[Rfam]
RNA sequence: GAGCGUCUGGAUUAGGGCCCGGAACACUGCAUGAGAGGAUUUAAAUUUCUCACAGUGAACCGGUCUCUUUUUCAGUCUCUCU
Number, nucleotide and partner (000 for none) at each position: 001g000002a000003g000004c000005g000006u000007c075008u074009g073010g072011a000012u000013u000014a000015g067016g066017g065018c000019c063020c062021g061022g000023a000024a000025c057026a056027c055028u054029g053030c000031a000032u000033g051034a050035g049036a000037g000038g000039a000040u000041u000042u000043a000044a000045a000046u000047u000048u000049c035050u034051c033052a000053c029054a028055g027056u026057g025058a000059a000060c000061c021062g020063g019064u000065c017066u016067c015068u000069u000070u000071u000072u010073c009074a008075g007076u000077c000078u000079c000080u000081c000082u000

Shown here is an 82-nucleotide RNA sequence from Hymenochirus boettgeri, a member of the family "mir-128 microRNA precursor family". Rfam links the family to the GO terms miRNA-mediated post-transcriptional gene silencing and RISC complex. The family has 57 seed sequences and 1,337 matches in Rfam 15.1. For this family Rfam cites "The developmental miRNA profiles of zebrafish as determined by small RNA cloning" (Chen et al., Genes Dev, 2005).